[Rfam]
RNA sequence: ACGCAAGGAAGGAGGUGAUCCCAGCAGUGAUCGAACGUGGGACAUGUGAGGUGACUGUCCGCUGAGUCGGAUGCCGGCAUUCGCUCAGCGAAUUCCAGCAGUCAUCGGCGCCCGUGGGGGCCGCACCCAGUCCAGUGCGGCGGCCUGAUCCAGGACCCCACGGGCGUUCCCCUG
Numbered sequence: 001a002c003g004c005a006a007g008g009a010a011g012g013a014g015g016u017g018a019u020c021c022c023a024g025c026a027g028u029g030a031u032c033g034a035a036c037g038u039g040g041g042a043c044a045u046g047u048g049a050g051g052u053g054a055c056u057g058u059c060c061g062c063u064g065a066g067u068c069g070g071a072u073g074c075c076g077g078c079a080u081u082c083g084c085u086c087a088g089c090g091a092a093u094u095c096c097a098g099c100a101g102u103c104a105u106c107g108g109c110g111c112c113c114g115u116g117g118g119g120g121c122c123g124c125a126c127c128c129a130g131u132c133c134a135g136u137g138c139g140g141c142g143g144c145c146u147g148a149u150c151c152a153g154g155a156c157c158c159c160a161c162g163g164g165c166g167u168u169c170c171c172c173u174g
Stems, first nucleotide, its partner, number of pairs: 014059004019054001060090007068083004073078001107168013121140006